Description
The record is a 173-nucleotide RNA from Paraliobacillus sp. PM-2, which matches "Group II catalytic intron D1-D4-3" in Rfam. Its family is annotated with Group II intron splicing in the Gene Ontology. The organism belongs to Paraliobacillus, within Bacteria.
RNA sequence: UCUAUCGUGAGAUAGAAUCUGAAGGAAGUCGGAGGCAAAAUCCCGAACUGACGAACAGAAAUUGCAUAUAAGGCUGGCUUGGAACGGACGAGUUUGCAUUACAUAACGAAGUCCAAUACUGCACGAAUUCCAUACAGUAAAUGCAGCAGUUACAUGGGAGGAAGGUUAUAGCC
Numbered sequence: 001u002c003u004a005u006c007g008u009g010a011g012a013u014a015g016a017a018u019c020u021g022a023a024g025g026a027a028g029u030c031g032g033a034g035g036c037a038a039a040a041u042c043c044c045g046a047a048c049u050g051a052c053g054a055a056c057a058g059a060a061a062u063u064g065c066a067u068a069u070a071a072g073g074c075u076g077g078c079u080u081g082g083a084a085c086g087g088a089c090g091a092g093u094u095u096g097c098a099u100u101a102c103a104u105a106a107c108g109a110a111g112u113c114c115a116a117u118a119c120u121g122c123a124c125g126a127a128u129u130c131c132a133u134a135c136a137g138u139a140a141a142u143g144c145a146g147c148a149g150u151u152a153c154a155u156g157g158g159a160g161g162a163a164g165g166u167u168a169u170a171g172c173c
Base pairs, nucleotide, nucleotide: 001016002015003014004013005012006011028173030171032169035166036165041159042158043157044156045155046151047150048149049148050147062146063145064144065143066142067141073138074137075136080132081131082130083129084128086114087113088112089111092107093106094105